FMN riboswitch aptamer (RFN element): a 155-nucleotide sequence from Alteribacter lacisalsi. A search with the family's covariance model found it, with a score of 121 bits.
[Rfam]
RNA sequence: AUGUUUCUUCGGGGCAGGGUGAAAUUCCCAACCGGCGGUGAUAAAUGAUUAUUUCAUUUUAAGCCCGUGACCCGUUUCCAGCUGAGCAAUACGGAAACGGUGGAUCCGGUGAAAGACCGGGGCCGACAGUAUAGUCUGGAUGGGAGAAGAAACAG
Numbered sequence: 001a002u003g004u005u006u007c008u009u010c011g012g013g014g015c016a017g018g019g020u021g022a023a024a025u026u027c028c029c030a031a032c033c034g035g036c037g038g039u040g041a042u043a044a045a046u047g048a049u050u051a052u053u054u055c056a057u058u059u060u061a062a063g064c065c066c067g068u069g070a071c072c073c074g075u076u077u078c079c080a081g082c083u084g085a086g087c088a089a090u091a092c093g094g095a096a097a098c099g100g101u102g103g104a105u106c107c108g109g110u111g112a113a114a115g116a117c118c119g120g121g122g123c124c125g126a127c128a129g130u131a132u133a134g135u136c137u138g139g140a141u142g143g144g145a146g147a148a149g150a151a152a153c154a155g
Stems, first nucleotide, its partner, number of pairs: 003153008017029003031135002033125002035068004063123002072100006105121005127138003